[Rfam]
RNA sequence: UACCUCCCUGGAAGGGGUGAUGUGUCAGCACAGAGCCCAGAUAAGGACUCUGACUCUCUCACUAGUGUGUGAUGAAACUGCCUGAGUGCUCUGACCUUCCACGGUGCGGG
Numbered sequence: 001u002a003c004c005u006c007c008c009u010g011g012a013a014g015g016g017g018u019g020a021u022g023u024g025u026c027a028g029c030a031c032a033g034a035g036c037c038c039a040g041a042u043a044a045g046g047a048c049u050c051u052g053a054c055u056c057u058c059u060c061a062c063u064a065g066u067g068u069g070u071g072a073u074g075a076a077a078c079u080g081c082c083u084g085a086g087u088g089c090u091c092u093g094a095c096c097u098u099c100c101a102c103g104g105u106g107c108g109g110g
Stems, first nucleotide, its partner, number of pairs: 009101007
Dot-bracket structure: ........(((((((...............................................................................))))))).........
RNA: Small nucleolar RNA SNORD124
Organism: Ceyx cyanopectus